[Rfam]
int-alpA RNA: a 65-nucleotide RNA sequence. Acidobacteria (1 example), Planctomycetes (1 example), Proteobacteria.

RNA sequence: CCUUGGGCUAGGUAGGCCAGCCGAAAAGGGUAUUCCGCGCCCCUGCCCAAGGUUUUCAUGCGGGG
Numbered sequence: 001c002c003u004u005g006g007g008c009u010a011g012g013u014a015g016g017c018c019a020g021c022c023g024a025a026a027a028g029g030g031u032a033u034u035c036c037g038c039g040c041c042c043c044u045g046c047c048c049a050a051g052g053u054u055u056u057c058a059u060g061c062g063g064g065g
Stems, first nucleotide, its partner, number of pairs: 001052008011022003028042004033065006